Shown here is a 260-nucleotide RNA from Takifugu flavidus, a member of the family "Small Cajal body specific RNA 6". By type it is a small Cajal body RNA. For this family Rfam cites "RNomics: an experimental approach that identifies 201 candidates for novel, small, non-messenger RNAs in mouse" (Huttenhofer et al., EMBO J, 2001). About the family: U88 is small Cajal body specific RNA (scaRNA). scaRNAs are a novel class of small nuclear RNAs which localise to the Cajal bodies. U88 is found associated with both fibrillarin and Gar1p and co-localises with coilin in Cajal bodies.
RNA sequence: GGUCGGUGAUGAGCUGUAAAAGGUCUGAUUUCCCAUCAUCCUCUCCCUCUGCCAUGUGACUCCCAGCAGCUCCUGUCUGAACCAUCAUGUUCAAGAGCUACAUUGAUGGAAUCAGCAGCUGCUGAAAGACAGGAUGUGACAUCACAGUGUGUAGCGAGGAUUCUACACACUGUGAUGAGCGACAUCCAACAGAGGCAGACUCGUAUGGAGUGGCUGAGGGGGGGGGCAGGGAGCUGAUCUCAAGUUUUCAAGCUGAGACC
Numbered sequence: 001g002g003u004c005g006g007u008g009a010u011g012a013g014c015u016g017u018a019a020a021a022g023g024u025c026u027g028a029u030u031u032c033c034c035a036u037c038a039u040c041c042u043c044u045c046c047c048u049c050u051g052c053c054a055u056g057u058g059a060c061u062c063c064c065a066g067c068a069g070c071u072c073c074u075g076u077c078u079g080a081a082c083c084a085u086c087a088u089g090u091u092c093a094a095g096a097g098c099u100a101c102a103u104u105g106a107u108g109g110a111a112u113c114a115g116c117a118g119c120u121g122c123u124g125a126a127a128g129a130c131a132g133g134a135u136g137u138g139a140c141a142u143c144a145c146a147g148u149g150u151g152u153a154g155c156g157a158g159g160a161u162u163c164u165a166c167a168c169a170c171u172g173u174g175a176u177g178a179g180c181g182a183c184a185u186c187c188a189a190c191a192g193a194g195g196c197a198g199a200c201u202c203g204u205a206u207g208g209a210g211u212g213g214c215u216g217a218g219g220g221g222g223g224g225g226g227c228a229g230g231g232a233g234c235u236g237a238u239c240u241c242a243a244g245u246u247u248u249c250a251a252g253c254u255g256a257g258a259c260c
Stems, first nucleotide, its partner, number of pairs: 001260004035240001038238003043224008061209003064124007082109006090100001132187006151163001153161001